[Rfam]
Record summary
Shown here is a 160-nucleotide sequence from Vitis vinifera, a member of the family "U12 minor spliceosomal RNA". The organism belongs to Vitis, within Eukaryota. A reference for the family is Tarn and Steitz (1997), "Pre-mRNA splicing: the discovery of a new spliceosome doubles the challenge", Trends Biochem Sci. The pairing is the family consensus, mapped onto this sequence. The family is grouped with related families in Rfam's "U2 clan".
RNA sequence: CUGCCUUAAACUAAUGAGUAAGGAAAACAAAGCAAGCGGUGAGAGCUGCUUGCCGCGCCUAUCUCUAUGAUGCGCAAGAAUUUAUGGAGGGGUUAAGGGCUGGCCGAGCGUUGACGCUGCUUACUUUUGCAGAACUCGCUUGUGCGGGCCUCCCAAACCC
Numbered sequence: 001c002u003g004c005c006u007u008a009a010a011c012u013a014a015u016g017a018g019u020a021a022g023g024a025a026a027a028c029a030a031a032g033c034a035a036g037c038g039g040u041g042a043g044a045g046c047u048g049c050u051u052g053c054c055g056c057g058c059c060u061a062u063c064u065c066u067a068u069g070a071u072g073c074g075c076a077a078g079a080a081u082u083u084a085u086g087g088a089g090g091g092g093u094u095a096a097g098g099g100c101u102g103g104c105c106g107a108g109c110g111u112u113g114a115c116g117c118u119g120c121u122u123a124c125u126u127u128u129g130c131a132g133a134a135c136u137c138g139c140u141u142g143u144g145c146g147g148g149c150c151u152c153c154c155a156a157a158c159c160c
Base pairs, nucleotide, nucleotide: 004023005022006021007020008019032053033052034051035050036049037048038047039046055075056074057073058072090160091159092158093157094156097151098150099149100148101147103145105142106141108139109138110137117132118131119130120129